[Rfam]
Nucleotides: 104
Base pairs, nucleotide, nucleotide: 014073015072016071019069020068021067025062026061027060028059080103082101083100087098088097089096
Number, partner (000 for none) and nucleotide at each position: 001000u002000a003000g004000a005000u006000g007000u008000g009000a010000u011000g012000a013000a014073g015072u016071g017000g018000a019069a020068g021067g022000u023000u024000g025062c026061u027060g028059a029000c030000a031000c032000a033000c034000c035000c036000g037000g038000c039000c040000g041000c042000u043000u044000u045000g046000c047000c048000a049000u050000g051000g052000c053000g054000g055000g056000u057000a058000c059028u060027c061026a062025g063000g064000u065000a066000a067021u068020u069019u070000c071016c072015a073014u074000g075000g076000a077000g078000a079000a080103u081000g082101u083100c084000u085000a086000u087098u088097u089096u090000a091000a092000a093000a094000a095000u096089a097088g098087g099000c100083g101082a102000g103080a104000a
A member of the RNA family "S10-Clostridia ribosomal protein leader" from Listeria kieliensis, 104 nucleotides long.
Taxonomically the source falls in Listeria (Bacteria, Bacilli, Caryophanales, Listeriaceae).
By type it is a cis-regulatory leader.